[Rfam]
Notes
The family of this 252-nucleotide RNA sequence from Bacillus oleivorans is "BsrG". Its family is annotated with autolysis and toxin activity in the Gene Ontology.
RNA sequence: AGUAGCUGAAUAUUUCAAGGGUGGUCGGCUUACCCCUUUGUGAAAGGGGGUGAUGCCUAUGACAGUUUUCGAAUCAUUAACUUUAAUGAUUUCGUUCGCGUCCUUAGUGGUCGUGGUUCUGUCUUUUUCCAAUAAAAAAUAGACCUCCCUUGAAUAAUUGGUAAGAGGGUAGAGGUCUAUUUUCGUCUAGUAGGCCGAUUCCCCUUCGAAAAUCAGCUGCUCUAGGCCUCGGAGUGUUCCCGCACUCUGAGG
Numbered sequence: 001a002g003u004a005g006c007u008g009a010a011u012a013u014u015u016c017a018a019g020g021g022u023g024g025u026c027g028g029c030u031u032a033c034c035c036c037u038u039u040g041u042g043a044a045a046g047g048g049g050g051u052g053a054u055g056c057c058u059a060u061g062a063c064a065g066u067u068u069u070c071g072a073a074u075c076a077u078u079a080a081c082u083u084u085a086a087u088g089a090u091u092u093c094g095u096u097c098g099c100g101u102c103c104u105u106a107g108u109g110g111u112c113g114u115g116g117u118u119c120u121g122u123c124u125u126u127u128u129c130c131a132a133u134a135a136a137a138a139a140u141a142g143a144c145c146u147c148c149c150u151u152g153a154a155u156a157a158u159u160g161g162u163a164a165g166a167g168g169g170u171a172g173a174g175g176u177c178u179a180u181u182u183u184c185g186u187c188u189a190g191u192a193g194g195c196c197g198a199u200u201c202c203c204c205u206u207c208g209a210a211a212a213u214c215a216g217c218u219g220c221u222c223u224a225g226g227c228c229u230c231g232g233a234g235u236g237u238u239c240c241c242g243c244a245c246u247c248u249g250a251g252g
Stems, first nucleotide, its partner, number of pairs: 001221005007215003011211001013193001014154008023144001025142001030053003034049005061123005074089003097115004164183002196208002227252010
About this RNA: From the family's description: bsrE, bsrG and bsrH pair through intermolecular interactions with antisense sRNAs. They form type I toxin/antitoxin system that includes an mRNA encoding for a short, toxic peptide (bsrE, bsrG and bsrH) and an antitoxin that is comprised of an antisense RNA. bsrG encodes a 39-amino-acid toxin, and the 180 nucleotide antisense sRNA called SR4 acts as the antitoxin (they overlap by 123 nucleotides). SR4 interaction with the 3'UTR of bsrG RNA promotes bsrG degradation and inhibits its translation. BsrG interferes with cell envelope biosynthesis, causes membrane invaginations and delocalisation of the cell wall synthesis and initiates autolysis. bsrE RNA encodes 30 amino-acid toxin peptide. Rfam classes the family as a small RNA. On this family, see Jahn and Brantl, Nucleic Acids Res 2013: "One antitoxin--two functions: SR4 controls toxin mRNA decay and translation". The organism belongs to Bacillus, within Bacteria.